Rfam assigns this 79-nucleotide sequence from Alligator sinensis to the family "Mammalian CPEB3 ribozyme".
RNA sequence: AGAGGUCACAAGUUUGAGGCCAUUACAGAAGCACUCACAGUGCGGCAUGUCAGGUUCCAAGAAAUCUGCAAAUUCUGCU
Numbered sequence: 001a002g003a004g005g006u007c008a009c010a011a012g013u014u015u016g017a018g019g020c021c022a023u024u025a026c027a028g029a030a031g032c033a034c035u036c037a038c039a040g041u042g043c044g045g046c047a048u049g050u051c052a053g054g055u056u057c058c059a060a061g062a063a064a065u066c067u068g069c070a071a072a073u074u075c076u077g078c079u
Stems, first nucleotide, its partner, number of pairs: 013047001019046003026077005031043003051068006
Record summary: The base pairs follow the family's consensus structure, which is taken from published work.